[Rfam]
RNA: SAM riboswitch aptamer (S box leader)
Organism: Guptibacillus hwajinpoensis
RNA sequence: AACUUAUCAAGAGAGACUGAGGGACUGGCCCGAUGACGUCCGGCAACCUGCUUUUUGCAAGGUGCUACUUCCAGCAAAAUGGAGUCCAUUUUGGAAGAUAAGGG
Numbered sequence: 001a002a003c004u005u006a007u008c009a010a011g012a013g014a015g016a017c018u019g020a021g022g023g024a025c026u027g028g029c030c031c032g033a034u035g036a037c038g039u040c041c042g043g044c045a046a047c048c049u050g051c052u053u054u055u056u057g058c059a060a061g062g063u064g065c066u067a068c069u070u071c072c073a074g075c076a077a078a079a080u081g082g083a084g085u086c087c088a089u090u091u092u093g094g095a096a097g098a099u100a101a102g103g104g
Stems, first nucleotide, its partner, number of pairs: 003102006013041001015040003021031003025074004042066004047062002049059003070096001075093006